Rfam assigns this 100-nucleotide RNA from Parasporobacterium paucivorans to the family "Pyrrolysine insertion sequence 1". The family's RNA type in Rfam is cis-regulatory element. Rfam links the family to the GO term pyrrolysine incorporation. A search with the family's covariance model found it, with a score of 76 bits. The literature on the family includes a 2005 paper in Biochimie by Theobald-Dietrich et al., "Evidence for the existence in mRNAs of a hairpin element responsible for ribosome dependent pyrrolysine insertion into proteins".

RNA sequence: UAGGGCAACGAAACAUCAUUAAGUCCUGCCGGAGUCUUAGCUGCUGACUUCGAAGGCGGUAUGAGGCCAUCUGAUUCCCAUGAGGUUUCCCAGCUGAAUG
Numbered sequence: 001u002a003g004g005g006c007a008a009c010g011a012a013a014c015a016u017c018a019u020u021a022a023g024u025c026c027u028g029c030c031g032g033a034g035u036c037u038u039a040g041c042u043g044c045u046g047a048c049u050u051c052g053a054a055g056g057c058g059g060u061a062u063g064a065g066g067c068c069a070u071c072u073g074a075u076u077c078c079c080a081u082g083a084g085g086u087u088u089c090c091c092a093g094c095u096g097a098a099u100g
Base pairs, nucleotide, nucleotide: 010089011088012087013086014085016083017082040060041059042058043057044056045055